RNA sequence: GACUCUCCGUGUUCACUGUUUGCCUUGAUGUCUUGUAUACUAGCAUAAGGCACGCGGUGAAUGCCAAGAGUU
Numbered sequence: 001g002a003c004u005c006u007c008c009g010u011g012u013u014c015a016c017u018g019u020u021u022g023c024c025u026u027g028a029u030g031u032c033u034u035g036u037a038u039a040c041u042a043g044c045a046u047a048a049g050g051c052a053c054g055c056g057g058u059g060a061a062u063g064c065c066a067a068g069a070g071u072u
Base pairs, nucleotide, nucleotide: 003070004069005068006067009064010063011062012061013060014059015058016057018055019054023050024049025048026047027046029045030044

The family of this 72-nucleotide sequence from Leptotrombidium deliense is "mir-124 microRNA precursor family". The family's consensus secondary structure was predicted with PFOLD. It scores 61 bits against the family's covariance model. The family has 122 seed sequences and 2,215 matches in Rfam 15.1.